Glutamine riboswitch aptamer (glnA leader): a 53-nucleotide RNA.
[Rfam]
RNA sequence: AUCGUUCAACUCAGUUUGAGUCGGAAGUAGGCAUUGUGCCGAAGGAACGCAUG
Number, nucleotide and partner (000 for none) at each position: 001a000002u000003c049004g048005u047006u046007c045008a000009a021010c020011u019012c018013a017014g000015u000016u000017u013018g012019a011020g010021u009022c000023g000024g050025a000026a000027g000028u000029a000030g040031g039032c038033a000034u000035u000036g000037u000038g032039c031040c030041g000042a000043a000044g000045g007046a006047a005048c004049g003050c024051a000052u000053g000
On this family, see Ren et al., Cell Rep 2015: "Structural and Dynamic Basis for Low-Affinity, High-Selectivity Binding of L-Glutamine by the Glutamine Riboswitch". The family's consensus secondary structure is taken from published work. Gene Ontology term of the family: glutamine binding.